c-di-GMP-I-GGC riboswitch aptamer: a 95-nucleotide RNA sequence from Bacillus salacetis. Pairs were carried over by alignment from the consensus structure, which is taken from published work. The source organism's lineage runs through Bacteria, Bacillota, Caryophanales, Bacillaceae and Bacillus. A search with the family's covariance model found it, with a score of 62 bits.

RNA sequence: ACAGAAAAUGGCAAACUCAUCUGAAAAGAGAGGACGCAAAGCCACGGGCCUAAAGGCAAUUUCAAGAUUGUUUAUUGGCAGCCGGGUUACCUAAU
Numbered sequence: 001a002c003a004g005a006a007a008a009u010g011g012c013a014a015a016c017u018c019a020u021c022u023g024a025a026a027a028g029a030g031a032g033g034a035c036g037c038a039a040a041g042c043c044a045c046g047g048g049c050c051u052a053a054a055g056g057c058a059a060u061u062u063c064a065a066g067a068u069u070g071u072u073u074a075u076u077g078g079c080a081g082c083c084g085g086g087u088u089a090c091c092u093a094a095u
Base pairs, nucleotide, nucleotide: 001095003092004091011037012036016032017031018030020029021028022027035081040088041087042086043085045084046083047082048079049078050077